[Rfam]
RNA sequence: CAUCGCGAUGCUCUUCAAUCUUGGAGAGAUCGUGAUGCGGAUACUAUCAAAAAAGCAGGUGAAGGAGUUGGUCUUGUACUCACCUCAGCACAUCGCACGGAUGGAAAAAGCCGGGACGUUCCCUAAGCGGAUACAACUUGGCCCAAACCGGGUGGGAUGGGUGGAAGACGAAGUGCUGGACUGGCUUCAGCCCCGGCUGGAAAGCAGAUAGCCUCUUGCGGUGCUCCCCACUUGGGAGCAGGGAGAUGGUCAGGUGUGCACAACUU
Numbered sequence: 001c002a003u004c005g006c007g008a009u010g011c012u013c014u015u016c017a018a019u020c021u022u023g024g025a026g027a028g029a030u031c032g033u034g035a036u037g038c039g040g041a042u043a044c045u046a047u048c049a050a051a052a053a054a055g056c057a058g059g060u061g062a063a064g065g066a067g068u069u070g071g072u073c074u075u076g077u078a079c080u081c082a083c084c085u086c087a088g089c090a091c092a093u094c095g096c097a098c099g100g101a102u103g104g105a106a107a108a109a110g111c112c113g114g115g116a117c118g119u120u121c122c123c124u125a126a127g128c129g130g131a132u133a134c135a136a137c138u139u140g141g142c143c144c145a146a147a148c149c150g151g152g153u154g155g156g157a158u159g160g161g162u163g164g165a166a167g168a169c170g171a172a173g174u175g176c177u178g179g180a181c182u183g184g185c186u187u188c189a190g191c192c193c194c195g196g197c198u199g200g201a202a203a204g205c206a207g208a209u210a211g212c213c214u215c216u217u218g219c220g221g222u223g224c225u226c227c228c229c230a231c232u233u234g235g236g237a238g239c240a241g242g243g244a245g246a247u248g249g250u251c252a253g254g255u256g257u258g259c260a261c262a263a264c265u266u
Stems, first nucleotide, its partner, number of pairs: 001037009012027006056199003060195001064188011077175004081170001083167001086164001088162002091159004096154003103148001110142002113138002122130002204250002219242001224238005253265003

Rfam assigns this 266-nucleotide RNA from Flavimaricola marinus to the family "Ruegeria trans44 sRNA". It is annotated as a small RNA. Pairs were carried over by alignment from the consensus structure, which was predicted with RNAfold. The literature on the family includes a 2016 paper in Front Microbiol by Rivers et al., "Experimental Identification of Small Non-Coding RNAs in the Model Marine Bacterium Ruegeria pomeroyi DSS-3".